[Rfam]
Nucleotides: 090
Stems, first nucleotide, its partner, number of pairs: 001089004044062008
Number, partner (000 for none) and nucleotide at each position: 001089a002088g003087c004086c005000a006000g007000u008000g009000a010000u011000g012000a013000a014000c015000u016000a017000c018000u019000a020000a021000a022000a023000c024000u025000u026000c027000u028000g029000a030000c031000a032000c033000c034000u035000c036000g037000u038000a039000u040000g041000a042000a043000a044062a045061c046060u047059g048058c049057a050056g051055u052000u053000c054000u055051g056050u057049u058048g059047c060046a061045g062044u063000a064000a065000u066000u067000g068000a069000u070000u071000a072000u073000a074000c075000c076000u077000u078000u079000g080000u081000u082000c083000u084000g085000a086004g087003g088002c089001u090000c